[Rfam]
RNA sequence: AUGCGAUGAGUCGAUUUGGUCUUCGGACCAUAAUAUUGCGCUGAGGAAAUCUACAUUCAAUUGUAACGCAGGAGCGGAUUUUGAUAGAUUGUGUGAACCUUUUUAUCACAUGCUCCACAAGGAAGCAUGCCUCAAACCCUCUACCAAAAGGUAGAGGGUUUUU
Numbered sequence: 001a002u003g004c005g006a007u008g009a010g011u012c013g014a015u016u017u018g019g020u021c022u023u024c025g026g027a028c029c030a031u032a033a034u035a036u037u038g039c040g041c042u043g044a045g046g047a048a049a050u051c052u053a054c055a056u057u058c059a060a061u062u063g064u065a066a067c068g069c070a071g072g073a074g075c076g077g078a079u080u081u082u083g084a085u086a087g088a089u090u091g092u093g094u095g096a097a098c099c100u101u102u103u104u105a106u107c108a109c110a111u112g113c114u115c116c117a118c119a120a121g122g123a124a125g126c127a128u129g130c131c132u133c134a135a136a137c138c139c140u141c142u143a144c145c146a147a148a149a150g151g152u153a154g155a156g157g158g159u160u161u162u163u
Stems, first nucleotide, its partner, number of pairs: 012038004017030005043133004047081004067076003082108007109129006137158009
Rfam assigns this 163-nucleotide RNA from Streptococcus sp. X16XC17 to the family "MarS sRNA". About the family: Interacts with the 5'UTR of the mga transcript (the multiple virulence gene regulator gene) and was renamed MarS for mag-activating regulatory sRNA. In MarS deletion strains expression of mga and several Mga-activated genes is reduced. This down-regulation of virulence factors leads to increased susceptibility of the deletion strain to phagocytosis, reduced adherence to human keratinocytes. However, the lack of MarS increased bacterial dissemination and tolerance towards oxidative stress. By type it is a small RNA. The match comes from Rfam's covariance-model search (109 bits).